Shown here is a 136-nucleotide sequence from Paenibacillus rhizosphaerae, a member of the family "SAM riboswitch aptamer (S box leader)". The source organism's lineage runs through Bacteria, Bacillati, Bacillota, Bacilli and Paenibacillus.
RNA sequence: UUCUUAUCGAGAGAGGCGGAGGGACAGGCCCGAUGAAGCCCGGCAACCGAUUUGAGCACGGCAUCCGCCGUUACUUGAAUGUCAUGGUGCUAAUUCCUACAAGCUGCAGCUUAAGCUGCGGGUUGGCAGAUGAGAA
Number, nucleotide and partner (000 for none) at each position: 001u136002u135003c134004u133005u132006a131007u130008c129009g000010a000011g000012a000013g041014a000015g040016g039017c038018g000019g000020a000021g031022g030023g029024a000025c000026a098027g097028g096029c023030c022031c021032g000033a000034u000035g000036a000037a000038g017039c016040c015041c013042g091043g090044c089045a088046a000047c087048c086049g083050a082051u081052u000053u000054g000055a000056g000057c000058a000059c000060g000061g000062c000063a000064u000065c000066c000067g000068c000069c000070g000071u000072u000073a000074c000075u000076u000077g000078a000079a000080u000081g051082u050083c049084a000085u000086g048087g047088u045089g044090c043091u042092a000093a000094u000095u128096c028097c027098u026099a000100c125101a124102a123103g000104c121105u120106g119107c118108a117109g116110c115111u000112u000113a000114a000115g110116c109117u108118g107119c106120g105121g104122g000123u102124u101125g100126g000127c000128a095129g008130a007131u006132g005133a004134g003135a002136a001